The family of this 79-nucleotide sequence from Microcaecilia unicolor is "mir-19 microRNA precursor family". Lineage of the source: Eukaryota > Opisthokonta > Metazoa > Gymnophiona > Microcaecilia. Its Rfam clan is "mir-19 clan". Gene Ontology terms of the family: miRNA-mediated post-transcriptional gene silencing and RISC complex. The base pairs follow the family's consensus structure, which was predicted with RNAalifold.
RNA sequence: UUCUCUGGUUAGUUUUGCAGGUUUGCAUUAGCUGUGCAGUUAUGUUGCUGUGCAAAUCCAUGCAAAACUGACUGUGGCA
Numbered sequence: 001u002u003c004u005c006u007g008g009u010u011a012g013u014u015u016u017g018c019a020g021g022u023u024u025g026c027a028u029u030a031g032c033u034g035u036g037c038a039g040u041u042a043u044g045u046u047g048c049u050g051u052g053c054a055a056a057u058c059c060a061u062g063c064a065a066a067a068c069u070g071a072c073u074g075u076g077g078c079a
Stems, first nucleotide, its partner, number of pairs: 003077002006074014020059002022056007030049003
Dot-bracket structure: ..((.(((((((((((((((((((((((.(((..............)))))))))).)).)))))))))))))).))..